[Rfam]
RNA sequence: AACUACAAGUGAUGACUUUGUUUGAAAAACAUUGGGAAUCUCUCUGAAAAACGAUGAAAGAUACUUUUGUUGCUGAUGCAGUG
Dot-bracket structure: .(((.((.....................................................................)).))).
RNA: Small nucleolar RNA SNORD79